[Rfam]
RNA sequence: GGCCUCCCUGUCCUUGUUAUAGGUGGUGCCUUCCCUUGGCACUGACUGCAUAGACAGUGGAGGUAGAGUAAAUUCCCUGCUACACCACAGCCCUGCUCCUCCUGUGGCUCGGCCUGUAUUGUUGUCAGGGAGACACCU
Numbered sequence: 001g002g003c004c005u006c007c008c009u010g011u012c013c014u015u016g017u018u019a020u021a022g023g024u025g026g027u028g029c030c031u032u033c034c035c036u037u038g039g040c041a042c043u044g045a046c047u048g049c050a051u052a053g054a055c056a057g058u059g060g061a062g063g064u065a066g067a068g069u070a071a072a073u074u075c076c077c078u079g080c081u082a083c084a085c086c087a088c089a090g091c092c093c094u095g096c097u098c099c100u101c102c103u104g105u106g107g108c109u110c111g112g113c114c115u116g117u118a119u120u121g122u123u124g125u126c127a128g129g130g131a132g133a134c135a136c137c138u
Base pairs, nucleotide, nucleotide: 002064003063004062005061006060007059020048021047022046026042027041028040029039075130076129077128078127079126088116089115090114092112093111095108096107097106
A member of the RNA family "Small nucleolar RNA SNORA51" from Scyliorhinus torazame, 138 nucleotides long. Pairs were carried over by alignment from the consensus structure, which was predicted with PFOLD. About the family: ACA51 is a member of the H/ACA class of snoRNA that guide the sites of modification of uridines to pseudouridines. Rfam classes the family as an H/ACA-box small nucleolar RNA.